[Rfam]
RNA sequence: GCAGACUCACUCUGUACCCGGCUGCCAUCCCAGGCGGGUGCUUUUUCCGUCUGCCACAGAAACAUCCCUGGGUGCUGUGACUGCCUUGACCUGUCAAGGGUGAUAACAGCUCUCUGGAGACACAAGG
Numbered sequence: 001g002c003a004g005a006c007u008c009a010c011u012c013u014g015u016a017c018c019c020g021g022c023u024g025c026c027a028u029c030c031c032a033g034g035c036g037g038g039u040g041c042u043u044u045u046u047c048c049g050u051c052u053g054c055c056a057c058a059g060a061a062a063c064a065u066c067c068c069u070g071g072g073u074g075c076u077g078u079g080a081c082u083g084c085c086u087u088g089a090c091c092u093g094u095c096a097a098g099g100g101u102g103a104u105a106a107c108a109g110c111u112c113u114c115u116g117g118a119g120a121c122a123c124a125a126g127g
Stems, first nucleotide, its partner, number of pairs: 001054006014041007022033003067117002070114003074110005079104001082102005
A member of the RNA family "Small nucleolar RNA SNORA77" from Rhinolophus ferrumequinum, 127 nucleotides long. On this family, see Schattner et al., RNA 2006: "A computational screen for mammalian pseudouridylation guide H/ACA RNAs". ACA63 (SNORA77) is a member of the H/ACA class of snoRNAs that guide the sites of modification of uridines to pseudouridines. This snoRNA was identified by computational screening and its expression in mouse experimentally verified by Northern blot and primer extension analysis. Its family is annotated with RNA processing and nucleolus in the Gene Ontology.